[Rfam]
RNA sequence: UAUUUUCUGAAGUAUUCGCCAAGCUCUUAUCUUGAACCUACAGUUUUAAAACGGGAGUUCAAUAUAAGAGUAUAGAUAUGGAUUUCUCGUAGUAGAGAAAAGAUAGAAGUACUUUUGAGGACACCCACCUAUCAGCGGAUAGGUUGUCAACGAAAGAGCAGCGGUAUUUUGGAUGUAUA
Numbered sequence: 001u002a003u004u005u006u007c008u009g010a011a012g013u014a015u016u017c018g019c020c021a022a023g024c025u026c027u028u029a030u031c032u033u034g035a036a037c038c039u040a041c042a043g044u045u046u047u048a049a050a051a052c053g054g055g056a057g058u059u060c061a062a063u064a065u066a067a068g069a070g071u072a073u074a075g076a077u078a079u080g081g082a083u084u085u086c087u088c089g090u091a092g093u094a095g096a097g098a099a100a101a102g103a104u105a106g107a108a109g110u111a112c113u114u115u116u117g118a119g120g121a122c123a124c125c126c127a128c129c130u131a132u133c134a135g136c137g138g139a140u141a142g143g144u145u146g147u148c149a150a151c152g153a154a155a156g157a158g159c160a161g162c163g164g165u166a167u168u169u170u171g172g173a174u175g176u177a178u179a
Stems, first nucleotide, its partner, number of pairs: 004175001006173010017163003032150004036144003053126003057122004064116001067115007078104002084099005
RNA: 6S / SsrS RNA